The record is a 132-nucleotide sequence from Varanus komodoensis, which matches "Small Cajal body specific RNA 15" in Rfam. Clan: SCARNA4 clan.

RNA sequence: UUGGAGGACUAAGAAAGUAGAACCAGUGAAGUCAGUUGGUUCUGCUGAUACUCUUCUCCUAAACUAAAUGGUAGAAGAACAAGGUCUUGUCUAUGAGAUACCACUAGAUCUUACUACUAUCUGCCAACAAUG
Numbered sequence: 001u002u003g004g005a006g007g008a009c010u011a012a013g014a015a016a017g018u019a020g021a022a023c024c025a026g027u028g029a030a031g032u033c034a035g036u037u038g039g040u041u042c043u044g045c046u047g048a049u050a051c052u053c054u055u056c057u058c059c060u061a062a063a064c065u066a067a068a069u070g071g072u073a074g075a076a077g078a079a080c081a082a083g084g085u086c087u088u089g090u091c092u093a094u095g096a097g098a099u100a101c102c103a104c105u106a107g108a109u110c111u112u113a114c115u116a117c118u119a120u121c122u123g124c125c126a127a128c129a130a131u132g
Stems, first nucleotide, its partner, number of pairs: 003059006010050002018044007025036001027034002070125006077118001082111006089104001
Record summary: It is annotated as a small Cajal body RNA. The source organism's lineage runs through Eukaryota, Chordata, Dipnotetrapodomorpha, Varanoidea and Varanus. For this family Rfam cites "Cajal body-specific small nuclear RNAs: a novel class of 2'-O-methylation and pseudouridylation guide RNAs" (Darzacq et al., EMBO J, 2002).